[Rfam]
RNA sequence: GUGAGGUGAUGACACAGUUUAUCCAUUCUCUGAGUGCAGUGGUGCUGCCCUCUGCAGCACCCCGGUUCCUGUUCUAGGGUCUGGGUGCUGUGCAGCCUCCCCACAUCCUGCAGCGUCCUGCUGGGGGCUGCUGUGGUGUGUGGCUGGCUGCCUGCAGGGGGGGAGCAGUGCUGGCAGGGUUGGAGCCCCUCUUUGGGGGCUGCAUCCUCACUGGGACGAGGGAUGAUGUCUGAUCAC
Numbered sequence: 001g002u003g004a005g006g007u008g009a010u011g012a013c014a015c016a017g018u019u020u021a022u023c024c025a026u027u028c029u030c031u032g033a034g035u036g037c038a039g040u041g042g043u044g045c046u047g048c049c050c051u052c053u054g055c056a057g058c059a060c061c062c063c064g065g066u067u068c069c070u071g072u073u074c075u076a077g078g079g080u081c082u083g084g085g086u087g088c089u090g091u092g093c094a095g096c097c098u099c100c101c102c103a104c105a106u107c108c109u110g111c112a113g114c115g116u117c118c119u120g121c122u123g124g125g126g127g128c129u130g131c132u133g134u135g136g137u138g139u140g141u142g143g144c145u146g147g148c149u150g151c152c153u154g155c156a157g158g159g160g161g162g163g164a165g166c167a168g169u170g171c172u173g174g175c176a177g178g179g180u181u182g183g184a185g186c187c188c189c190u191c192u193u194u195g196g197g198g199g200c201u202g203c204a205u206c207c208u209c210a211c212u213g214g215g216a217c218g219a220g221g222g223a224u225g226a227u228g229u230c231u232g233a234u235c236a237c
Stems, first nucleotide, its partner, number of pairs: 010236003017229002020226001023222002026220003030215002034211002039175002042172001043170006050159003056089007065081001067079004092151006104130002107127003111123005177209002179206001181204002184201001186199004